[Rfam]
RNA: mir-57 microRNA precursor family
Organism: Caenorhabditis sp. 36 PRJEB53466
RNA sequence: UCCGCCUCGUUUACCCUGUAGAUCGAGCUGUGUGUCUGCAGAAUCGAGACACAAGCUAGAGUACAAGGUGCACGAGAAGCCCG
Numbered sequence: 001u002c003c004g005c006c007u008c009g010u011u012u013a014c015c016c017u018g019u020a021g022a023u024c025g026a027g028c029u030g031u032g033u034g035u036c037u038g039c040a041g042a043a044u045c046g047a048g049a050c051a052c053a054a055g056c057u058a059g060a061g062u063a064c065a066a067g068g069u070g071c072a073c074g075a076g077a078a079g080c081c082c083g
Stems, first nucleotide, its partner, number of pairs: 012070004018064003023060002026057004031053005037046002